[Rfam]
RNA sequence: UAAAUUCUUCGGGGCAGGGUGUAAAUCCCGACCGAUGGUAAAUGGUUAGCCGCAACCUAAGCUAAUCAAAGUCCAUGAGCUGCGUUUUCGUGGUUGAUCUAGUGCGAUUCUAGAACCGACAGUAAAAGUCUGGAUGGGAGAAGAAUAGA
Dot-bracket structure: ...(((((((......(((.......))).[[((((((................................[[))))..(((..........)))...(((((.......)))))]])).(((.....]]))).......)))))))...
Numbered sequence: 001u002a003a004a005u006u007c008u009u010c011g012g013g014g015c016a017g018g019g020u021g022u023a024a025a026u027c028c029c030g031a032c033c034g035a036u037g038g039u040a041a042a043u044g045g046u047u048a049g050c051c052g053c054a055a056c057c058u059a060a061g062c063u064a065a066u067c068a069a070a071g072u073c074c075a076u077g078a079g080c081u082g083c084g085u086u087u088u089c090g091u092g093g094u095u096g097a098u099c100u101a102g103u104g105c106g107a108u109u110c111u112a113g114a115a116c117c118g119a120c121a122g123u124a125a126a127a128g129u130c131u132g133g134a135u136g137g138g139a140g141a142a143g144a145a146u147a148g149a
Stems, first nucleotide, its partner, number of pairs: 004146007017029003031129002033118002035076004071116002079094003098114005120132003